[Rfam]
RNA sequence: ACCUAGGGCUUCUGCUGUGUUUAGCACGCGGGUUGAUUCGAUUUUCGGAUCUUUCUGUGCGGAAUCGACAUCAAGAGAUUUCGGAAGCAUAAUUUUUGCAGCUGGGGCUGUCAGUGAUCUUGCGUCCGGGCGCUCGA
Numbered sequence: 001a002c003c004u005a006g007g008g009c010u011u012c013u014g015c016u017g018u019g020u021u022u023a024g025c026a027c028g029c030g031g032g033u034u035g036a037u038u039c040g041a042u043u044u045u046c047g048g049a050u051c052u053u054u055c056u057g058u059g060c061g062g063a064a065u066c067g068a069c070a071u072c073a074a075g076a077g078a079u080u081u082c083g084g085a086a087g088c089a090u091a092a093u094u095u096u097u098g099c100a101g102c103u104g105g106g107g108c109u110g111u112c113a114g115u116g117a118u119c120u121u122g123c124g125u126c127c128g129g130g131c132g133c134u135c136g137a
Stems, first nucleotide, its partner, number of pairs: 008088005013026005027059006035051006060083007105135004110131003114127001116126003